Annotation: mir-548 microRNA precursor family: a 97-nucleotide RNA from Cebus imitator.
RNA sequence: UAUUGGGUUGGUGCAAAAGUAAUUGCGGUUUUUGCCAUUGAAAGUUUGCUUUACUUUCAAUGGCAAAAACCGCAAUUACUUUUGUACCAACCUAGUA
Dot-bracket structure: (((((((((((((((((((((((((((((((((((((((((((((.......)))))))))))))))))))))))))))))))))))))))))))))
Numbered sequence: 001u002a003u004u005g006g007g008u009u010g011g012u013g014c015a016a017a018a019g020u021a022a023u024u025g026c027g028g029u030u031u032u033u034g035c036c037a038u039u040g041a042a043a044g045u046u047u048g049c050u051u052u053a054c055u056u057u058c059a060a061u062g063g064c065a066a067a068a069a070c071c072g073c074a075a076u077u078a079c080u081u082u083u084g085u086a087c088c089a090a091c092c093u094a095g096u097a
Stems, first nucleotide, its partner, number of pairs: 001097045
A search with the family's covariance model found it, with a score of 91 bits. Rfam links the family to the GO terms RISC complex and miRNA-mediated post-transcriptional gene silencing.